[Rfam]
RNA sequence: AUAAUGAUACUCCCUUACAGCCACAGUCCGAGCGUUAGAAGCGUCGAAGGCAAUGGGUAGGGCUGCGUGAGAACCACGCAGGAGUGAAAUUCUCGUGG
Dot-bracket structure: ...........(((((((......................................))))))(((.(((.....))).)))(((.......))))...
The record is a 98-nucleotide RNA sequence, which matches "pemK RNA" in Rfam. It is annotated as a cis-regulatory element.